[Rfam]
Shown here is a 75-nucleotide RNA sequence from Eleutherodactylus coqui, a member of the family "Small nucleolar RNA SNORD19".
The family has 22 seed sequences and 1,431 matches in Rfam 15.1.
The family's RNA type in Rfam is C/D-box small nucleolar RNA.
For this family Rfam cites "RNomics: an experimental approach that identifies 201 candidates for novel, small, non-messenger RNAs in mouse" (Huttenhofer et al., EMBO J, 2001).
NCBI's taxonomy places the organism under Eukaryota, Bilateria, Vertebrata, Tetrapoda, Eleutherodactylus.
RNA sequence: GAGACAUGAGGAGAACUCUUGAACAGUCUGAUGUUUCUGAUGACUGUCAGAUCCAACUCUGAUCUCCUUUAGCAC
Dot-bracket structure: ((((..........................................................)))).........